[Rfam]
This 102-nucleotide RNA sequence from Polaromonas eurypsychrophila belongs to the Rfam family "Glycine riboswitch aptamer". A search with the family's covariance model found it, with a score of 60 bits.
Nucleotides: 102
Base pairs, nucleotide, nucleotide: 006097007096008095009094011092012091013090020038021037022036023035024034025033040081041080042079043077044076047075048074049073053068054067055066056065057064
Number, partner (000 for none) and nucleotide at each position: 001000g002000c003000g004000u005000u006097c007096c008095c009094u010000a011092c012091u013090g014000g015000a016000g017000a018000g019000a020038g021037g022036c023035g024034g025033u026000c027000u028000u029000c030000a031000a032000g033025g034024u035023c036022g037021u038020u039000c040081a041080c042079c043077g044076a045000a046000g047075g048074a049073g050000c051000a052000a053068g054067c055066c056065c057064g058000c059000a060000u061000c062000g063000c064057c065056g066055g067054g068053u069000g070000a071000a072000u073049c074048u075047c076044u077043c078000a079042g080041g081040u082000a083000a084000a085000c086000c087000g088000g089000a090013c091012a092011g093000c094009a095008g096007g097006g098000g099000c100000a101000g102000c